[Rfam]
Shown here is a 68-nucleotide sequence from Eleutherodactylus coqui, a member of the family "mir-33 microRNA precursor family". It scores 78 bits against the family's covariance model. The family has 73 seed sequences and 1,467 matches in Rfam 15.1. The family's consensus secondary structure was predicted with PFOLD. The organism belongs to Eleutherodactylus, within Eukaryota.
RNA sequence: CUGUGGUGCAUUGUAGUUGCAUUGCAUGUUCUAUUCUCUCUGUGCAAUGUUUCUGCAGUGCAAUACAG
Numbered sequence: 001c002u003g004u005g006g007u008g009c010a011u012u013g014u015a016g017u018u019g020c021a022u023u024g025c026a027u028g029u030u031c032u033a034u035u036c037u038c039u040c041u042g043u044g045c046a047a048u049g050u051u052u053c054u055g056c057a058g059u060g061c062a063a064u065a066c067a068g
Stems, first nucleotide, its partner, number of pairs: 001068004006064001007062010019050001021048007